[Rfam]
RNA sequence: GCUUCCGAGGAGCGUUGCAGCGCCGCCCGACACGAGGUGGCGCGAGGCUCGGAUUCCAUUUGCAACGACGCUCGCCCACG
Dot-bracket structure: ...(((((............((((((..........))))))......)))))...........................
A member of the RNA family "SAH (S-adenosyl-L-homocysteine) riboswitch aptamer" from Pseudorhodoferax sp. Leaf274, 80 nucleotides long. A search with the family's covariance model found it, with a score of 56 bits. The base pairs follow the family's consensus structure, which is taken from published work. On this family, see Wang et al., Mol Cell 2008: "Riboswitches that sense S-adenosylhomocysteine and activate genes involved in coenzyme recycling".